[Rfam]
RNA: Singlet oxygen resistance RNA X
RNA sequence: AACCCGAAGAUUGCGCCCGGGCUCUGGCGCAUACCUCCCUGUUGGACUCGGCCGGGCUUCUUGCCCGGCCUUUUUU
Number, nucleotide and partner (000 for none) at each position: 001a000002a000003c000004c000005c000006g000007a000008a000009g000010a000011u000012u031013g030014c029015g028016c027017c026018c000019g000020g000021g000022c000023u000024c000025u000026g017027g016028c015029g014030c013031a012032u000033a000034c000035c000036u000037c000038c000039c000040u000041g000042u000043u000044g000045g000046a000047c000048u000049c000050g070051g069052c068053c067054g066055g065056g064057c063058u000059u000060c000061u000062u000063g057064c056065c055066c054067g053068g052069c051070c050071u000072u000073u000074u000075u000076u000